Notes:
The record is a 92-nucleotide RNA from Vulcanibacillus modesticaldus, which matches "Selenocysteine transfer RNA" in Rfam.
RNA sequence: GGGAGUGGAAGAAGUUCUGGUGUCUUCCCCGGUCUUCAAAACCGUGUGAGGGGCUAGGUAGUCCCUGGUGGGUUCGAUUCCCAUCCACUCCC
Numbered sequence: 001g002g003g004a005g006u007g008g009a010a011g012a013a014g015u016u017c018u019g020g021u022g023u024c025u026u027c028c029c030c031g032g033u034c035u036u037c038a039a040a041a042c043c044g045u046g047u048g049a050g051g052g053g054c055u056a057g058g059u060a061g062u063c064c065c066u067g068g069u070g071g072g073u074u075c076g077a078u079u080c081c082c083a084u085c086c087a088c089u090c091c092c
Stems, first nucleotide, its partner, number of pairs: 001092009011027004017022001029046001030044004049066005069083004

The family is grouped with related families in Rfam's "tRNA clan".